[Rfam]
RNA sequence: CCCCCAGGGGGAAGCGAAGACCCUAUGGAGCUUUACUGCAGGCUGUCGCUGGGACGUGGUCGCUGAUGUGCAGGGUAGGUAGAAGACAUUACACAGGUGCGUGCGCUAGCACGUCGCCGAGUCGCCCAUGAAACACUACCCGUCAGUGACUGCGACCCUCACUCCGGGAGGAGGACACCGGUAGCCGGGCAGUUUGACUGGGGCGGUACGCGCUUGAAAAGAUAUCGAGCGCGCCCCAAGGCCAUCUCAUCCGGGACAGAGAUCCGGAGAAGAGCGCAAGAGCAAAAGAUGGCUUGACAGUGUUCUUCCCAACGAGGAACGCUGACGUGAAAGCGUGGUCUAGCGAACUCAUUUGCCCGCUUGAUGCGGGCAAUGAAUGACAGAAAAGCUACCCUAGGGAUAACAGAGUUGUCGCCGGCAAGAGUACAUAUCGACCCGGCGGUUUGCUACCUCGAUGUCGGUUCCCUCCAUCCUGCCCGUGCAGAAGCGGGCAAGGGUGAGGUUGUUCGCCUAUUAAAGGAGGUCGUGAGCUGGGUUUAGACCGUCGUGAGACAGGUCGGCUGCUAUCUACUGGGGGUGUCAU
Numbered sequence: 001c002c003c004c005c006a007g008g009g010g011g012a013a014g015c016g017a018a019g020a021c022c023c024u025a026u027g028g029a030g031c032u033u034u035a036c037u038g039c040a041g042g043c044u045g046u047c048g049c050u051g052g053g054a055c056g057u058g059g060u061c062g063c064u065g066a067u068g069u070g071c072a073g074g075g076u077a078g079g080u081a082g083a084a085g086a087c088a089u090u091a092c093a094c095a096g097g098u099g100c101g102u103g104c105g106c107u108a109g110c111a112c113g114u115c116g117c118c119g120a121g122u123c124g125c126c127c128a129u130g131a132a133a134c135a136c137u138a139c140c141c142g143u144c145a146g147u148g149a150c151u152g153c154g155a156c157c158c159u160c161a162c163u164c165c166g167g168g169a170g171g172a173g174g175a176c177a178c179c180g181g182u183a184g185c186c187g188g189g190c191a192g193u194u195u196g197a198c199u200g201g202g203g204c205g206g207u208a209c210g211c212g213c214u215u216g217a218a219a220a221g222a223u224a225u226c227g228a229g230c231g232c233g234c235c236c237c238a239a240g241g242c243c244a245u246c247u248c249a250u251c252c253g254g255g256a257c258a259g260a261g262a263u264c265c266g267g268a269g270a271a272g273a274g275c276g277c278a279a280g281a282g283c284a285a286a287a288g289a290u291g292g293c294u295u296g297a298c299a300g301u302g303u304u305c306u307u308c309c310c311a312a313c314g315a316g317g318a319a320c321g322c323u324g325a326c327g328u329g330a331a332a333g334c335g336u337g338g339u340c341u342a343g344c345g346a347a348c349u350c351a352u353u354u355g356c357c358c359g360c361u362u363g364a365u366g367c368g369g370g371c372a373a374u375g376a377a378u379g380a381c382a383g384a385a386a387a388g389c390u391a392c393c394c395u396a397g398g399g400a401u402a403a404c405a406g407a408g409u410u411g412u413c414g415c416c417g418g419c420a421a422g423a424g425u426a427c428a429u430a431u432c433g434a435c436c437c438g439g440c441g442g443u444u445u446g447c448u449a450c451c452u453c454g455a456u457g458u459c460g461g462u463u464c465c466c467u468c469c470a471u472c473c474u475g476c477c478c479g480u481g482c483a484g485a486a487g488c489g490g491g492c493a494a495g496g497g498u499g500a501g502g503u504u505g506u507u508c509g510c511c512u513a514u515u516a517a518a519g520g521a522g523g524u525c526g527u528g529a530g531c532u533g534g535g536u537u538u539a540g541a542c543c544g545u546c547g548u549g550a551g552a553c554a555g556g557u558c559g560g561c562u563g564c565u566a567u568c569u570a571c572u573g574g575g576g577g578u579g580u581c582a583u
Base pairs, nucleotide, nucleotide: 001577002576003575004574005573006572007571010569011568012567014564015563022398023397024396025395027394028393029390030389031388032387033386035193036192037191038190042185043184044183045182046181047180048179051158052157053156055154056153057152058151059150060149061148062147063146064145065144066143067142068141078140079139080138081137082136085123086122087121100113101112102111103110104109162173163172164171165170196209197207198206199205210232211231212230213229214228215227235338236337241293242292243291244290245289246288247273248272250268251267252266253265254264255263274283275282298324299323300322301321302320303319304318305317306316326335328333349376350375351374352373353372355371356370357369358368359367407448408447409446411445412442413441414440415439416438417437418436422432423431459534460532461531462530463529464526465523466522467521468520469519472497473496476491477490478489479488480487500512501511502510503509540558541557542556543555544553545552546551

Rfam assigns this 583-nucleotide part of an RNA from Halococcoides cellulosivorans to the family "Archaeal large subunit ribosomal RNA". Taxonomically the source falls in Halococcoides (Archaea, Methanobacteriati, Halobacteria, Halobacteriales).